Overview
A member of the RNA family "Purine riboswitch aptamer" from Clostridium butyricum, 100 nucleotides long. Rfam links the family to the GO term purine nucleobase biosynthetic process. Pairs were carried over by alignment from the consensus structure, which is taken from published work. Rfam's curators put it in the seed alignment. Riboswitches are metabolite binding domains within certain messenger RNAs that serve as precision sensors for their corresponding targets. The family is grouped with related families in Rfam's "Purine riboswitches".
RNA sequence: UUUAAAUUAAUAAAUGAGUUUCGUAUAAUUCCAAUAAUAUGGUUUGGAAGUCUCUACUAGGAACCUAUAAUUCCUAAUUACGAAGAAAAUUUUAUGCAAA
Numbered sequence: 001u002u003u004a005a006a007u008u009a010a011u012a013a014a015u016g017a018g019u020u021u022c023g024u025a026u027a028a029u030u031c032c033a034a035u036a037a038u039a040u041g042g043u044u045u046g047g048a049a050g051u052c053u054c055u056a057c058u059a060g061g062a063a064c065c066u067a068u069a070a071u072u073c074c075u076a077a078u079u080a081c082g083a084a085g086a087a088a089a090u091u092u093u094a095u096g097c098a099a100a
Base pairs, nucleotide, nucleotide: 019085020084021083022082023081024080025079029049030048031047032046033045034044058076059075060074061073062072063071